[Rfam]
RNA sequence: CUGGUAAUGUCAAAGUGCUUACAGUGCAGGUAGUGAUGUACAUAACCUACUGCAGUGAAGGCACUUGUAGCAUUAUAUG
Dot-bracket structure: ...((((.((..((((((((.((.(((.(((((.............)))))))).)).))))))))...)).))))...
Source information:
The family of this 79-nucleotide sequence from Geotrypetes seraphini is "mir-17 microRNA precursor family". The organism belongs to Geotrypetes, within Eukaryota. Rfam 15.1 lists 4,687 matches to the family in 648 species. On this family, see Lagos-Quintana et al., Science 2001: "Identification of novel genes coding for small expressed RNAs". About the family: This family represents the microRNA (miRNA) precursor mir-17, family, which includes mir-20, mir-91, and mir-103. miRNAs are transcribed as ~70nt precursors (modelled here) and subsequently processed by the Dicer enzyme to give a ~22nt product.